[Rfam]
The family of this 160-nucleotide RNA from Paenibacillus sp. CAA11 is "SAM riboswitch aptamer (S box leader)".
RNA sequence: UUCUUAUCCAGAGAGGCGGAGGGAAAGGCCCGAUGAAGCCCGGCAACCGAUUCGGUGGCUAUUAAAUGGUCCAAGUAAGCAGGAGACCCUUUAUAAGUUACCCGAGUGACAUGGUGCUAAUUCCUCAGAGUACAUGAUCAUGUAUUCUGGCAGAUGAGAA
Numbered sequence: 001u002u003c004u005u006a007u008c009c010a011g012a013g014a015g016g017c018g019g020a021g022g023g024a025a026a027g028g029c030c031c032g033a034u035g036a037a038g039c040c041c042g043g044c045a046a047c048c049g050a051u052u053c054g055g056u057g058g059c060u061a062u063u064a065a066a067u068g069g070u071c072c073a074a075g076u077a078a079g080c081a082g083g084a085g086a087c088c089c090u091u092u093a094u095a096a097g098u099u100a101c102c103c104g105a106g107u108g109a110c111a112u113g114g115u116g117c118u119a120a121u122u123c124c125u126c127a128g129a130g131u132a133c134a135u136g137a138u139c140a141u142g143u144a145u146u147c148u149g150g151c152a153g154a155u156g157a158g159a160a
Stems, first nucleotide, its partner, number of pairs: 001160008013041001015040003021031003026125003042118004047114002049110001122152001126149009
The organism belongs to Paenibacillus, within Bacteria. The match comes from Rfam's covariance-model search (70 bits).